RNA sequence: AGCAUAAUUCGAAGGCCGUCAUUCCUACUAUCCCUUGUGGAAUGUAAUCGGUUCAAACAUUGUGCCAGA
Numbered sequence: 001a002g003c004a005u006a007a008u009u010c011g012a013a014g015g016c017c018g019u020c021a022u023u024c025c026u027a028c029u030a031u032c033c034c035u036u037g038u039g040g041a042a043u044g045u046a047a048u049c050g051g052u053u054c055a056a057a058c059a060u061u062g063u064g065c066c067a068g069a
Stems, first nucleotide, its partner, number of pairs: 002065007016051003020044002023042001025040004